Overview:
Rfam assigns this 81-nucleotide sequence from Varanus komodoensis to the family "mir-26 microRNA precursor family". The family's consensus secondary structure was predicted with RNAalifold. It scores 64 bits against the family's covariance model.
[Rfam]
RNA sequence: UUGCAUCCCACUGCAAGUAAUCAAGGAUAGGCCAUCAGGAAUGUACACAGCCUAUCCUGGAUUACUUGAACCGGGUUACAG
Dot-bracket structure: .((.(.(((..(.(((((((((.(((((((((.................))))))))).))))))))).)..))).).)).
Numbered sequence: 001u002u003g004c005a006u007c008c009c010a011c012u013g014c015a016a017g018u019a020a021u022c023a024a025g026g027a028u029a030g031g032c033c034a035u036c037a038g039g040a041a042u043g044u045a046c047a048c049a050g051c052c053u054a055u056c057c058u059g060g061a062u063u064a065c066u067u068g069a070a071c072c073g074g075g076u077u078a079c080a081g
Stems, first nucleotide, its partner, number of pairs: 002080002005077001007075003012070001014068009024058009

Its family is annotated with RISC complex and miRNA-mediated post-transcriptional gene silencing in the Gene Ontology.